[Rfam]
RNA sequence: GGCACAAACUCGAAGUGGAUAGUUUAGUAGGGUCAGGUGACCCUUCUAAUCUACUCUACUUCGAAUUUGGGCCU
Numbered sequence: 001g002g003c004a005c006a007a008a009c010u011c012g013a014a015g016u017g018g019a020u021a022g023u024u025u026a027g028u029a030g031g032g033u034c035a036g037g038u039g040a041c042c043c044u045u046c047u048a049a050u051c052u053a054c055u056c057u058a059c060u061u062c063g064a065a066u067u068u069g070g071g072c073c074u
Stems, first nucleotide, its partner, number of pairs: 001073003005069004011063008020053003024049004029044001031042004
RNA: mir-5928 microRNA precursor family
Organism: Haemonchus placei